[Rfam]
RNA sequence: GUACGAUAAAGGCAAAACCAUUGAAAAGUGGUGACGCAAAGCUAUAGGGACUACUUCGGCAGCCAAAAGCACCGAUAUGUCAGCCAGCUACCGCC
Numbered sequence: 001g002u003a004c005g006a007u008a009a010a011g012g013c014a015a016a017a018c019c020a021u022u023g024a025a026a027a028g029u030g031g032u033g034a035c036g037c038a039a040a041g042c043u044a045u046a047g048g049g050a051c052u053a054c055u056u057c058g059g060c061a062g063c064c065a066a067a068a069g070c071a072c073c074g075a076u077a078u079g080u081c082a083g084c085c086a087g088c089u090a091c092c093g094c095c
Stems, first nucleotide, its partner, number of pairs: 012037002017032006040089004047085002049081003056075004